[Rfam]
RNA sequence: GAAACGCAGGGAGUAGUAUAUAGGGAUUACGCCUUGAUGGAGGAGAUUCCGGUUCGAAUCCGGGCUACUGCGUCAAUCUUAUUCCACCUUAAUUGGUGGCUUUUUUAUU
Numbered sequence: 001g002a003a004a005c006g007c008a009g010g011g012a013g014u015a016g017u018a019u020a021u022a023g024g025g026a027u028u029a030c031g032c033c034u035u036g037a038u039g040g041a042g043g044a045g046a047u048u049c050c051g052g053u054u055c056g057a058a059u060c061c062g063g064g065c066u067a068c069u070g071c072g073u074c075a076a077u078c079u080u081a082u083u084c085c086a087c088c089u090u091a092a093u094u095g096g097u098g099g100c101u102u103u104u105u106u107a108u109u
Stems, first nucleotide, its partner, number of pairs: 004073006012066002032043004048064005084099005
This 109-nucleotide RNA sequence from Streptococcus phage Javan23 belongs to the Rfam family "Streptococcus sRNA SpF41". Lineage of the source: Viruses > Duplodnaviria > Heunggongvirae > Uroviricota > Caudoviricetes. It is annotated as a small RNA. A search with the family's covariance model found it, with a score of 95 bits. The base pairs follow the family's consensus structure, which was predicted with mfold.